[Rfam]
RNA sequence: CCUUGUUCGAUGAUGAAAUAUUUUCGGAUGUAAAUCAUAAAACCACCGAGAGCGCAAAACCGUGUGGAUAUCUUCCGUUGCCUUCCUUCUGAGCUUCAAU
Number, nucleotide and partner (000 for none) at each position: 001c000002c000003u099004u098005g097006u000007u000008c000009g000010a000011u000012g000013a000014u000015g000016a000017a000018a000019u000020a000021u000022u000023u000024u000025c077026g076027g075028a074029u000030g000031u000032a000033a000034a000035u000036c000037a000038u000039a000040a000041a000042a000043c000044c000045a000046c000047c000048g000049a000050g000051a000052g000053c000054g000055c000056a000057a000058a000059a000060c000061c000062g000063u000064g000065u000066g000067g000068a000069u000070a000071u000072c000073u000074u028075c027076c026077g025078u000079u000080g000081c000082c000083u000084u000085c000086c000087u000088u000089c000090u000091g000092a000093g000094c000095u000096u000097c005098a004099a003100u000
A member of the RNA family "Small nucleolar RNA Z13/snr52" from Sporormia fimetaria, 100 nucleotides long. Rfam classes the family as a C/D-box small nucleolar RNA. A search with the family's covariance model found it, with a score of 90 bits.